The family of this 346-nucleotide sequence from Caproiciproducens sp. NJN-50 is "Bacterial RNase P class A". A search with the family's covariance model found it, with a score of 248 bits. Ribonuclease P (RNase P) is a ubiquitous endoribonuclease, found in archaea, bacteria and eukarya as well as chloroplasts and mitochondria. Gene Ontology terms of the family: ribonuclease P activity, dimeric ribonuclease P complex and tRNA processing.
RNA sequence: CGAGCAGGCCGGGCAGCCGCGGGCGCAGCGCGAAAGCGCGCGUGCGAGGAAAGUCCGAGCUCCACAGGGCGGAAUAACGGCUAACGGCCGCCGGGGGCGACCCCAGGGAAAGUGCAACAGAAAGAAACCGCCGCAUUUGCGGUAAGGAUGGAAAGGCGGGGCAAGAGCCCACCAGCGCGCGGGAGACCGCGCGGCUCUGCAAACCCUAUUCGGAGCAACACCGCAGAGGGACGUUGCGCGCCGGCCCGGCGCGUCCCGAGAAGGUGGCAUCGAGCCGCGGUGGCGACACCCGGCCAAGAUAGAUGGCUGCUUAAGACAGAACUCGGCUUACAGGCCUGGUCGCAUU
Number, nucleotide and partner (000 for none) at each position: 001c342002g341003a340004g000005c338006a337007g336008g335009c334010c333011g331012g311013g310014c309015a308016g307017c306018c305019g000020c046021g045022g000023g043024c042025g041026c040027a000028g000029c000030g000031c000032g000033a000034a000035a000036g000037c000038g000039c000040g026041c025042g024043u023044g000045c021046g020047a000048g000049g000050a000051a329052a328053g327054u000055c326056c325057g324058a323059g322060c215061u214062c213063c212064a000065c000066a000067g247068g246069g245070c244071g000072g211073a210074a209075u208076a207077a000078c090079g089080g088081c087082u000083a000084a000085c000086g000087g081088c080089c079090g078091c000092c106093g104094g103095g102096g101097g000098c000099g000100a000101c096102c095103c094104c093105a000106g092107g206108g205109a000110a000111a000112g204113u203114g200115c199116a198117a000118c000119a000120g000121a000122a000123a000124g000125a000126a000127a000128c147129c146130g143131c142132c141133g140134c139135a000136u000137u000138u000139g134140c133141g132142g131143u130144a000145a000146g129147g128148a000149u000150g000151g000152a000153a000154a000155g173156g172157c000158g170159g169160g168161g000162c000163a000164a000165g000166a000167g000168c160169c159170c158171a000172c156173c155174a000175g195176c193177g192178c191179g190180c189181g188182g187183g000184a000185g000186a000187c182188c181189g180190c179191g178192c177193g176194g000195c175196u000197c000198u116199g115200c114201a000202a000203a113204c112205c108206c107207u076208a075209u074210u073211c072212g063213g062214a061215g060216c000217a000218a000219c266220a265221c264222c263223g000224c000225a000226g000227a000228g257229g256230g255231a254232c253233g252234u000235u000236g000237c000238g000239c251240g250241c249242c248243g000244g070245c069246c068247c067248g242249g241250c240251g239252c233253g232254u231255c230256c229257c228258g000259a000260g000261a000262a000263g222264g221265u220266g219267g000268c000269a000270u000271c000272g000273a000274g294275c293276c292277g291278c000279g290280g289281u288282g287283g000284c000285g000286a000287c282288a281289c280290c279291c277292g276293g275294c274295c000296a000297a000298g000299a000300u000301a000302g000303a000304u000305g018306g017307c016308u015309g014310c013311u012312u000313a000314a000315g000316a000317c000318a000319g000320a000321a000322c059323u058324c057325g056326g055327c053328u052329u051330a000331c011332a000333g010334g009335c008336c007337u006338g005339g000340u003341c002342g001343c000344a000345u000346u000